A member of the RNA family "mir-184 microRNA precursor family" from Dipodomys ordii, 84 nucleotides long.
The organism belongs to Dipodomys, within Eukaryota.
RNA sequence: CCAGUCGCCUUCCCUUAUCACUUUUCCAGCCCAGCUUGGUGACUGAAAAUGCUGGACGGAAAACUGAUAAGGGUAGACGACUGA
Numbered sequence: 001c002c003a004g005u006c007g008c009c010u011u012c013c014c015u016u017a018u019c020a021c022u023u024u025u026c027c028a029g030c031c032c033a034g035c036u037u038g039g040u041g042a043c044u045g046a047a048a049a050u051g052c053u054g055g056a057c058g059g060a061a062a063a064c065u066g067a068u069a070a071g072g073g074u075a076g077a078c079g080a081c082u083g084a
Stems, first nucleotide, its partner, number of pairs: 012073009022063006030055002
Pairs were carried over by alignment from the consensus structure, which was predicted with PFOLD.